Shown here is a 78-nucleotide RNA sequence from Chroococcidiopsis thermalis, a member of the family "CyVA-1 RNA". The organism belongs to Chroococcidiopsis thermalis, within Bacteria. The base pairs follow the family's consensus structure, which is taken from published work.
[Rfam]
RNA sequence: CAACCAGAGCAGAAAUUUUGCUGUUUAGUCUGCUAAUUUUCGCCCGAAGGAGAACGAUGUCAGGGUAGAAAAUGGUUG
Dot-bracket structure: ((((((..((((.................))))....(((.((((.................)))).)))..))))))
Rfam describes the family as follows. Cyanobacteria, Acidobacteria (1 example), Verrucomicrobia (1 example). The family's RNA type in Rfam is small RNA.